Moco-II RNA: a 45-nucleotide RNA sequence from Syntrophotalea acetylenica. Taxonomically the source falls in Syntrophotalea (Bacteria, Pseudomonadati, Desulfuromonadales, Syntrophotaleaceae). The family's consensus secondary structure is taken from published work. A search with the family's covariance model found it, with a score of 47 bits. Rfam classes the family as a cis-regulatory element.
[Rfam]
RNA sequence: CGCGCUUAUUUCGUCCUCUGCUUUGGCAGACACACCGAAACCCGC
Numbered sequence: 001c002g003c004g005c006u007u008a009u010u011u012c013g014u015c016c017u018c019u020g021c022u023u024u025g026g027c028a029g030a031c032a033c034a035c036c037g038a039a040a041c042c043c044g045c
Stems, first nucleotide, its partner, number of pairs: 011038003017030005